[Rfam]
RNA sequence: UACUUAUCAAAUUUUCGAGUGAAACAAUCUAAGGCUUUUGUAGCUAGGAUUCUUCACCAUUGGGUGACUAAAGAAAUUUAUUUGCCUCCCACUUUGGAAAGGAAAUUUGUCUUAAUAAAU
Numbered sequence: 001u002a003c004u005u006a007u008c009a010a011a012u013u014u015u016c017g018a019g020u021g022a023a024a025c026a027a028u029c030u031a032a033g034g035c036u037u038u039u040g041u042a043g044c045u046a047g048g049a050u051u052c053u054u055c056a057c058c059a060u061u062g063g064g065u066g067a068c069u070a071a072a073g074a075a076a077u078u079u080a081u082u083u084g085c086c087u088c089c090c091a092c093u094u095u096g097g098a099a100a101g102g103a104a105a106u107u108u109g110u111c112u113u114a115a116u117a118a119a120u
Stems, first nucleotide, its partner, number of pairs: 011106006019057005026051004033045004062087006069080004088097002
Source information
This 120-nucleotide sequence from Anaerovirgula multivorans belongs to the Rfam family "Molybdenum/Tungsten riboswitch aptamer (Moco RNA motif)". The base pairs follow the family's consensus structure, which is taken from published work. The match comes from Rfam's covariance-model search (62 bits).